RNA sequence: UUGGAUAUUGAAUGAUUCCUUCGUAUAUGCCCGAUAAUAUGGUUCGGGUGUUUCUACCAAAUCACCGUAAAUGAUUUGACUAUGAAGGCAGUUUUUCUAUUG
Numbered sequence: 001u002u003g004g005a006u007a008u009u010g011a012a013u014g015a016u017u018c019c020u021u022c023g024u025a026u027a028u029g030c031c032c033g034a035u036a037a038u039a040u041g042g043u044u045c046g047g048g049u050g051u052u053u054c055u056a057c058c059a060a061a062u063c064a065c066c067g068u069a070a071a072u073g074a075u076u077u078g079a080c081u082a083u084g085a086a087g088g089c090a091g092u093u094u095u096u097c098u099a100u101u102g
Base pairs, nucleotide, nucleotide: 018088019087020086021085022084023083024082025081029049030048031047032046033045034044058078059077060076061075062074063073064072

A member of the RNA family "Purine riboswitch aptamer" from Fervidibacillus halotolerans, 102 nucleotides long. It scores 91 bits against the family's covariance model. NCBI's taxonomy places the organism under Bacteria, Bacillota, Bacilli, Caryophanales, Fervidibacillus.